[Rfam]
RNA sequence: UUGCAAUACGGAAAUGGUGUCCUUCCGAUUCAACCGCUUUUUUCAAAAGCUGAUGGCGCCUACAAUAGA
Numbered sequence: 001u002u003g004c005a006a007u008a009c010g011g012a013a014a015u016g017g018u019g020u021c022c023u024u025c026c027g028a029u030u031c032a033a034c035c036g037c038u039u040u041u042u043u044c045a046a047a048a049g050c051u052g053a054u055g056g057c058g059c060c061u062a063c064a065a066u067a068g069a
Stems, first nucleotide, its partner, number of pairs: 010026004016060006036050004
Shown here is a 69-nucleotide sequence from Pedobacter sp. BAL39, a member of the family "Fluoride riboswitch aptamer (crcB RNA motif)". Taxonomically the source falls in Pedobacter (Bacteria, Pseudomonadati, Sphingobacteriales, Sphingobacteriaceae).